[Rfam]
RNA sequence: UCACACGACUCUGGAGAGACCCGCUGACUGCAUGCGGGCGCCGAAGGUGCAAACCGGUUCAGUCUUCUUUCUGACCGGGCAACUCUCAGGCAAAAGGACAGGGGGGCAGAG
Numbered sequence: 001u002c003a004c005a006c007g008a009c010u011c012u013g014g015a016g017a018g019a020c021c022c023g024c025u026g027a028c029u030g031c032a033u034g035c036g037g038g039c040g041c042c043g044a045a046g047g048u049g050c051a052a053a054c055c056g057g058u059u060c061a062g063u064c065u066u067c068u069u070u071c072u073g074a075c076c077g078g079g080c081a082a083c084u085c086u087c088a089g090g091c092a093a094a095a096g097g098a099c100a101g102g103g104g105g106g107c108a109g110a111g
Stems, first nucleotide, its partner, number of pairs: 006106001009103005020038004040091003043087002047085001049083001054077001

The record is a 111-nucleotide RNA sequence from Orrella marina, which matches "Glycine riboswitch aptamer" in Rfam. The source organism's lineage runs through Bacteria, Pseudomonadota, Betaproteobacteria, Alcaligenaceae and Orrella.